[Rfam]
RNA sequence: AUAUGAUAAAGGCAAACCUAUCGAAAGGUAGGGACGCAAAGCUACGAGUCUAAGGUGUUAUAACACUAUGACAGUCGGGUUGCCAAG
Number, nucleotide and partner (000 for none) at each position: 001a000002u000003a000004u000005g000006a000007u000008a000009a000010a000011g000012g037013c036014a000015a000016a000017c032018c031019u030020a029021u028022c027023g000024a000025a000026a000027g022028g021029u020030a019031g018032g017033g000034a000035c000036g013037c012038a000039a000040a081041g080042c079043u078044a000045c077046g076047a075048g072049u071050c070051u000052a000053a000054g000055g066056u065057g064058u063059u000060a000061u000062a000063a058064c057065a056066c055067u000068a000069u000070g050071a049072c048073a000074g000075u047076c046077g045078g043079g042080u041081u040082g000083c000084c000085a000086a000087g000
c-di-GMP-I riboswitch aptamer: an 87-nucleotide RNA from Lutispora thermophila. The family's consensus secondary structure is taken from published work.